[Rfam]
RNA sequence: ACAAAAAAAAACCUGCAGAACUUUCUGCAGGGUCCUUCCACAUCCUCAUAAAGGAUAGAAGGCAAAGGGAGAGGAGAAACCGGAGGAAGAACUUAUGGGGAAACGUAAGUCUUCUCCGCGG
Numbered sequence: 001a002c003a004a005a006a007a008a009a010a011a012c013c014u015g016c017a018g019a020a021c022u023u024u025c026u027g028c029a030g031g032g033u034c035c036u037u038c039c040a041c042a043u044c045c046u047c048a049u050a051a052a053g054g055a056u057a058g059a060a061g062g063c064a065a066a067g068g069g070a071g072a073g074g075a076g077a078a079a080c081c082g083g084a085g086g087a088a089g090a091a092c093u094u095a096u097g098g099g100g101a102a103a104c105g106u107a108a109g110u111c112u113u114c115u116c117c118g119c120g121g
Stems, first nucleotide, its partner, number of pairs: 012031008033069005042056005081118004086114004091110005

A member of the RNA family "ylbH leader", 121 nucleotides long. Rfam classes the family as a cis-regulatory leader. Rfam's curators write: This family is a putative regulatory RNA structure that is found upstream of the ylbH gene in B. subtilis and related low GC Gram-positive bacteria.